[Rfam]
RNA sequence: UAGACAGCAAAACCUGCGCUUAGGCGUUACUUUAUCUAAAAGAUAGACGCUUGGGGUAAAGUCCGAGAGAAGCCAUGUAAGCCUCUUGCGGAGGGUCCUGCGAACAGCGGGGCGGGAGCGACCAGCAAACUGGGGGAUUUAUUCUGCCUGUUAGCGGGUCCCGCGCCUGCGAGGCUGAUUCCCAGUCUGGCGAGGGCAGUUGACGGCCAACAGCGGCCCGAUGCCCGCCGGUGGGGAGCCCGAGGCCUUGCAGCGCGCCGGGAGUCCUUGGCAGAGCCACGGUCCCCCGCCGUUGGAAAUAUGCUCUCUGGCGGUAGCUCAAUGCAGUGCAAUGCGCAGGGUGCUCGCAGCAAGUGCGGGCAUUCACCCAAUUCGGAUUAAUUUGCUAUCUA
Numbered sequence: 001u002a003g004a005c006a007g008c009a010a011a012a013c014c015u016g017c018g019c020u021u022a023g024g025c026g027u028u029a030c031u032u033u034a035u036c037u038a039a040a041a042g043a044u045a046g047a048c049g050c051u052u053g054g055g056g057u058a059a060a061g062u063c064c065g066a067g068a069g070a071a072g073c074c075a076u077g078u079a080a081g082c083c084u085c086u087u088g089c090g091g092a093g094g095g096u097c098c099u100g101c102g103a104a105c106a107g108c109g110g111g112g113c114g115g116g117a118g119c120g121a122c123c124a125g126c127a128a129a130c131u132g133g134g135g136g137a138u139u140u141a142u143u144c145u146g147c148c149u150g151u152u153a154g155c156g157g158g159u160c161c162c163g164c165g166c167c168u169g170c171g172a173g174g175c176u177g178a179u180u181c182c183c184a185g186u187c188u189g190g191c192g193a194g195g196g197c198a199g200u201u202g203a204c205g206g207c208c209a210a211c212a213g214c215g216g217c218c219c220g221a222u223g224c225c226c227g228c229c230g231g232u233g234g235g236g237a238g239c240c241c242g243a244g245g246c247c248u249u250g251c252a253g254c255g256c257g258c259c260g261g262g263a264g265u266c267c268u269u270g271g272c273a274g275a276g277c278c279a280c281g282g283u284c285c286c287c288c289g290c291c292g293u294u295g296g297a298a299a300u301a302u303g304c305u306c307u308c309u310g311g312c313g314g315u316a317g318c319u320c321a322a323u324g325c326a327g328u329g330c331a332a333u334g335c336g337c338a339g340g341g342u343g344c345u346c347g348c349a350g351c352a353a354g355u356g357c358g359g360g361c362a363u364u365c366a367c368c369c370a371a372u373u374c375g376g377a378u379u380a381a382u383u384u385g386c387u388a389u390c391u392a
Stems, first nucleotide, its partner, number of pairs: 001392004007386003013339001022052007063376005072312004082094004096112006114308007135291002341363009
Nuclear RNase P: a 392-nucleotide RNA from Linderina pennispora. The literature on the family includes a 1998 paper in Annu Rev Biochem by Frank and Pace, "Ribonuclease P: unity and diversity in a tRNA processing ribozyme". Rfam's curators write: Ribonuclease P (RNase P) is a ubiquitous endoribonuclease, found in archaea, bacteria and eukarya as well as chloroplasts and mitochondria. Its best characterised activity is the generation of mature 5'-ends of tRNAs by cleaving the 5'-leader elements of precursor-tRNAs. Cellular RNase Ps are ribonucleoproteins. RNA from bacterial RNase Ps retains its catalytic activity in the absence of the protein subunit, i.e. it is a ribozyme. Isolated eukaryotic and archaeal RNase P RNA has not been shown to retain its catalytic function, but is still essential for the catalytic activity of the holoenzyme. Although the archaeal and eukaryotic holoenzyme s have a much greater protein content than the bacterial ones, the RNA cores from all the three lineages are homologous -- helices corresponding to P1, P2, P3, P4, and P10/11 are common to all cellular RNase P RNAs. Yet, there is considerable sequence variation, particularly among the eukaryotic RNAs. The family's RNA type in Rfam is ribozyme. Lineage of the source: Eukaryota > Fungi > Kickxellomycota > Kickxellomycetes > Linderina. It scores 77 bits against the family's covariance model.